[Rfam]
RNA sequence: AUCUGAAAAAGGCAAACCUCGCGAAAGUGGGGGACGCAAGGUCAUUGAUCUACAGGGCAAGUGCUCCAGGAUAGCCUGACUGCCAGA
Numbered sequence: 001a002u003c004u005g006a007a008a009a010a011g012g013c014a015a016a017c018c019u020c021g022c023g024a025a026a027g028u029g030g031g032g033g034a035c036g037c038a039a040g041g042u043c044a045u046u047g048a049u050c051u052a053c054a055g056g057g058c059a060a061g062u063g064c065u066c067c068a069g070g071a072u073a074g075c076c077u078g079a080c081u082g083c084c085a086g087a
Stems, first nucleotide, its partner, number of pairs: 012037002017032006040081004047075001048072003055066004
A member of the RNA family "c-di-GMP-I riboswitch aptamer" from Nitrosomonas nitrosa, 87 nucleotides long. Pairs were carried over by alignment from the consensus structure, which is taken from published work. Gene Ontology term of the family: cyclic-di-GMP binding. The organism belongs to Nitrosomonas, within Bacteria.